[Rfam]
The record is a 132-nucleotide RNA sequence from Bacillus solimangrovi, which matches "SAM riboswitch aptamer (S box leader)" in Rfam. NCBI's taxonomy places the organism under Bacteria, Bacillati, Bacilli, Caryophanales, Bacillus. Rfam describes the family as follows. The SAM riboswitch is found upstream of a number of genes which code for proteins involved in methionine or cysteine biosynthesis in Gram-positive bacteria.
RNA sequence: CUCUUAUCCUGAGCUGGCGGAGGGACAGGCCCUAUGAAACCCGGCAACCGACAUCGUGUUAUUAGUUUACAACGUACAUGAUGAAAAGGUGCCAACCUGAUGCAAGACUCACAUAGUCUUGAACGAUAAGAG
Numbered sequence: 001c002u003c004u005u006a007u008c009c010u011g012a013g014c015u016g017g018c019g020g021a022g023g024g025a026c027a028g029g030c031c032c033u034a035u036g037a038a039a040c041c042c043g044g045c046a047a048c049c050g051a052c053a054u055c056g057u058g059u060u061a062u063u064a065g066u067u068u069a070c071a072a073c074g075u076a077c078a079u080g081a082u083g084a085a086a087a088g089g090u091g092c093c094a095a096c097c098u099g100a101u102g103c104a105a106g107a108c109u110c111a112c113a114u115a116g117u118c119u120u121g122a123a124c125g126a127u128a129a130g131a132g
Stems, first nucleotide, its partner, number of pairs: 001132008013042001016041002022032003026102002029098001043093004048089002052083008103121006